[Rfam]
RNA: FMN riboswitch aptamer (RFN element)
Organism: Rhodanobacter sp. ANJX3
RNA sequence: UAGCGUCUUCAGGGCGGGGUGAAAUUCCCCACCGGCGGUAGGUUGAAGGGCGGCCUUUACUUAAGGCACUCCGACAGCGAGCCCGCGAGCGCCUCGACCAGCUCCGUAAGGAACGACAUCGAGGGUCAGCAGAUCCGGUCAGACUCCGGAGCCGACGGUUGGCAACUGGCGACAGUUUCCAGAGAGUCCGGAUAAAAGAAGACGGUC
Number, nucleotide and partner (000 for none) at each position: 001u000002a000003g000004c204005g203006u202007c201008u200009u199010c198011a000012g000013g000014g000015c000016g000017g029018g028019g027020u000021g000022a000023a000024a000025u000026u000027c019028c018029c017030c000031a000032c000033c154034g153035g086036c085037g084038g083039u000040a000041g000042g000043u000044u000045g000046a000047a000048g000049g000050g000051c000052g000053g000054c000055c000056u000057u000058u000059a000060c000061u000062u000063a000064a000065g000066g000067c000068a000069c000070u000071c000072c000073g000074a000075c000076a000077g000078c000079g000080a000081g000082c000083c038084c037085g036086c035087g000088a000089g130090c129091g000092c000093c000094u000095c000096g000097a000098c000099c000100a000101g000102c000103u000104c000105c000106g000107u000108a000109a000110g000111g000112a000113a000114c000115g000116a000117c000118a000119u000120c000121g000122a000123g000124g000125g000126u000127c000128a000129g090130c089131a000132g000133a000134u150135c149136c148137g147138g146139u000140c000141a000142g000143a000144c000145u000146c138147c137148g136149g135150a134151g000152c000153c034154g033155a000156c190157g189158g188159u000160u000161g000162g000163c000164a000165a000166c000167u000168g000169g000170c000171g000172a000173c000174a000175g000176u000177u000178u000179c000180c000181a000182g000183a000184g000185a000186g000187u000188c158189c157190g156191g000192a000193u000194a000195a000196a000197a000198g010199a009200a008201g007202a006203c005204g004205g000206u000207c000